[Rfam]
RNA: Saccharopolyspora sRNA 350
RNA sequence: UUGUACGUCUUCUUCUUGUACGUCUUCUAUGACGUCGCUGCCGAUGAUGCCGCCGUCGGUCACGACGCCCGUCCGGUGCGGCUCGCCGUACGUCCCCGGGCGGGUCUUCUCCACCUUGCCGCGGGCGACCAGGUACACGUGGUCGGCGGGCCGGCCCGCCUCCGCCACCACCUCGCCCGCCCGCAGCUCCCGCUGCUCGAAGCGGUCGGCGAGGGCGCGCAGCACGUCGUGGUCGUCGAAGCCGCGCAGCAGCGGCAGUUCGCCGAGCUCGGCCGGGACGACGCGUACGGUGGCGCCCUCCUGCACGAACGUCACCCGCCCGUCGCCGACGGUGUACACCAGGCGCCGGUUGACCCGGUACGCACCGCCCUUGACCUCCACCCAGGGCAGCAGGCGCAGCAGCCAGCGCGAGCUGAUGCCCUGCAUCUGCGGCACGGACUUGGUGGUGGUCGCCAGAUUGCGCGCCGCCGCGAUGCCCAGGCUGAGCUGUGCCCGC
Dot-bracket structure: ......((.....((..(...(.......(((((((..(((.(..(..(.((((((.(..(....(((((((..((.((((....)))).)...)....)))).....((.(.((...(...(((((....((.((.....(...(((((.(.(...((....))...).....)))))).)...).)))...))))).....)...)).).)))))....)..)((....((((((.......((.(((.(((......)))...))))).....))))))....)).)))))).))..).))).)).))))).)...)((((......))))........(.(.(((....(.......)..))).).).)).....)).(((((((.(((.(((.(.......))))..))).))))))).....((((..((.(.(((((.......)))))..).))..)))).(.....(.(((......))).)....)